The family of this 110-nucleotide sequence from Thalassotalea sp. HSM 43 is "t44 RNA". A reference for the family is Tjaden et al. (2002), "Transcriptome analysis of Escherichia coli using high-density oligonucleotide probe arrays", Nucleic Acids Res. A search with the family's covariance model found it, with a score of 52 bits. From the family's description: This family consists of a number of bacterial RNA genes of between 135 and 170 bases in length. The t44 gene has been identified in several species of enteric bacteria but homologs have also been identified in Pseudomonas and Coxiella species. The family's RNA type in Rfam is small RNA. The base pairs follow the family's consensus structure, which was predicted with LocARNA.
RNA sequence: AUUAAAUUUUUUAUUAAUCUCACAUACAUUCAGCGAACAUAUUCCGGGGUGCCUGUUACCUGCCUUAAGGUAACCAUAGGUCGGAGAUAUGGAAUGUAUGAACGCAUAAC
Number, nucleotide and partner (000 for none) at each position: 001a000002u000003u000004a000005a000006a000007u000008u000009u000010u000011u000012u000013a000014u000015u000016a000017a000018u000019c000020u000021c000022a000023c100024a099025u098026a097027c096028a095029u094030u093031c000032a000033g000034c000035g000036a000037a000038c091039a090040u089041a088042u087043u085044c084045c083046g082047g000048g000049g000050u000051g081052c080053c079054u078055g077056u000057u000058a000059c000060c000061u000062g000063c000064c000065u000066u000067a000068a000069g000070g000071u000072a000073a000074c000075c000076a000077u055078a054079g053080g052081u051082c046083g045084g044085a043086g000087a042088u041089a040090u039091g038092g000093a030094a029095u028096g027097u026098a025099u024100g023101a000102a000103c000104g000105c000106a000107u000108a000109a000110c000